RNA sequence: GCCACGCUUUAGCAGCACGUAAAUAUUGGCGUGUAAGAAUAGAACCCAACCCCAAUAUUAGCAGUGCUGCUUCAGUGUGGC
Numbered sequence: 001g002c003c004a005c006g007c008u009u010u011a012g013c014a015g016c017a018c019g020u021a022a023a024u025a026u027u028g029g030c031g032u033g034u035a036a037g038a039a040u041a042g043a044a045c046c047c048a049a050c051c052c053c054a055a056u057a058u059u060a061g062c063a064g065u066g067c068u069g070c071u072u073c074a075g076u077g078u079g080g081c
Stems, first nucleotide, its partner, number of pairs: 001081003005077003010074001011071008020061001022059008
A member of the RNA family "mir-16 microRNA precursor family" from Amphiprion ocellaris, 81 nucleotides long. Pairs were carried over by alignment from the consensus structure, which was predicted with PFOLD. Its family is annotated with RISC complex and miRNA-mediated post-transcriptional gene silencing in the Gene Ontology. A reference for the family is Calin et al. (2002), "Frequent deletions and down-regulation of micro- RNA genes miR15 and miR16 at 13q14 in chronic lymphocytic leukemia", Proc Natl Acad Sci U S A.